[Rfam]
RNA sequence: UUUGUAAUCGGCGAUGACGUUCGCCAAAAAUAUUACUUGAUUGUAAUUGAUGACGUCUACUUUGAA
Numbered sequence: 001u002u003u004g005u006a007a008u009c010g011g012c013g014a015u016g017a018c019g020u021u022c023g024c025c026a027a028a029a030a031u032a033u034u035a036c037u038u039g040a041u042u043g044u045a046a047u048u049g050a051u052g053a054c055g056u057c058u059a060c061u062u063u064g065a066a
Stems, first nucleotide, its partner, number of pairs: 010025004016057006032047004
RNA: Fluoride riboswitch aptamer (crcB RNA motif)
Organism: Companilactobacillus versmoldensis